Small nucleolar RNA SNORA14: a 136-nucleotide RNA sequence from Thamnophis sirtalis. ACA14 is a member of the H/ACA class of snoRNA that guide the sites of modification of uridines to pseudouridines. Rfam links the family to the GO terms RNA processing and nucleolus.

[Rfam]
RNA sequence: AUGCAUUCUCAAAACCCUCCUGGUACUGUUUCACUAAUAACUUCCAGGAUAAGGAGAAAUGCUAAACAAAAAUGUAGAGUUAUCCAAAAUGCAGCAUUAUUUUGUAAUUUUGCAUUAUUUCAGCUCUUCAACAAUU
Numbered sequence: 001a002u003g004c005a006u007u008c009u010c011a012a013a014a015c016c017c018u019c020c021u022g023g024u025a026c027u028g029u030u031u032c033a034c035u036a037a038u039a040a041c042u043u044c045c046a047g048g049a050u051a052a053g054g055a056g057a058a059a060u061g062c063u064a065a066a067c068a069a070a071a072a073u074g075u076a077g078a079g080u081u082a083u084c085c086a087a088a089a090u091g092c093a094g095c096a097u098u099a100u101u102u103u104g105u106a107a108u109u110u111u112g113c114a115u116u117a118u119u120u121c122a123g124c125u126c127u128u129c130a131a132c133a134a135u136u
Stems, first nucleotide, its partner, number of pairs: 003062004009054002018049006025042001027040001068136001073130002076127003088116007096108002100104001